RNA sequence: UAGGUAGUUUCAUGUUGUUGGGAUUGGCUUCCUGGCUCGACAACAAGAAACUGCCUUGA
Numbered sequence: 001u002a003g004g005u006a007g008u009u010u011c012a013u014g015u016u017g018u019u020g021g022g023a024u025u026g027g028c029u030u031c032c033u034g035g036c037u038c039g040a041c042a043a044c045a046a047g048a049a050a051c052u053g054c055c056u057u058g059a
Base pairs, nucleotide, nucleotide: 002056003055004054005053006052007051008050009049010048013045014044015043016042017041018040019039020038021037022036